[Rfam]
RNA sequence: CUCUUAUCAAGAGAGGUGGAGGGAUGUGCCCAAUGAAGCCCGGCAACCGCCAAGUAAAGACUUGGAAUGGUGCCAAUUCACACAAAGUGUUUCCUAUUCAUUUAGCGUCUGCGAAUGGUAGGAAAAUGCUUUGAAAGAUAAGAG
Numbered sequence: 001c002u003c004u005u006a007u008c009a010a011g012a013g014a015g016g017u018g019g020a021g022g023g024a025u026g027u028g029c030c031c032a033a034u035g036a037a038g039c040c041c042g043g044c045a046a047c048c049g050c051c052a053a054g055u056a057a058a059g060a061c062u063u064g065g066a067a068u069g070g071u072g073c074c075a076a077u078u079c080a081c082a083c084a085a086a087g088u089g090u091u092u093c094c095u096a097u098u099c100a101u102u103u104a105g106c107g108u109c110u111g112c113g114a115a116u117g118g119u120a121g122g123a124a125a126a127u128g129c130u131u132u133g134a135a136a137g138a139u140a141a142g143a144g
Stems, first nucleotide, its partner, number of pairs: 001144008013041001015040003021031003025082004042074004047070002050065003078136001083133010
A member of the RNA family "SAM riboswitch aptamer (S box leader)" from Calidifontibacillus erzurumensis, 144 nucleotides long. A search with the family's covariance model found it, with a score of 82 bits. The source organism's lineage runs through Bacteria, Bacillati, Caryophanales, Bacillaceae and Calidifontibacillus.